[Rfam]
Nucleotides: 145
Stems, first nucleotide, its partner, number of pairs: 005141006017029003031125002033115002035063004058113002066091002095111005117128003
Number, partner (000 for none) and nucleotide at each position: 001000u002000u003000c004000g005141g006140u007139u008138c009137u010136c011000a012000g013000g014000g015000c016000g017029g018028g019027g020000u021000g022000a023000a024000a025000u026000u027019c028018c029017c030000c031125a032124c033115c034114g035063g036062c037061g038060g039000u040000a041000u042000c043000g044000g045000a046000a047000g048000c049000a050000a051000u052000u053000c054000c055000g056000g057000a058113g059112c060038c061037c062036g063035c064000g065000a066091g067090c068000g069000c070000c071000u072000u073000c074000u075000c076000c077000a078000a079000a080000g081000g082000a083000a084000g085000g086000g087000u088000c089000a090067g091066c092000a093000g094000a095111u096110c097109c098108g099107g100000u101000g102000a103000g104000a105000u106000g107099c108098c109097g110096g111095a112059g113058c114034c115033g116000a117128c118127g119126g120000u121000a122000u123000a124032g125031u126119c127118c128117g129000g130000a131000u132000g133000g134000a135000a136010g137009a138008g139007g140006a141005c142000a143000a144000g145000g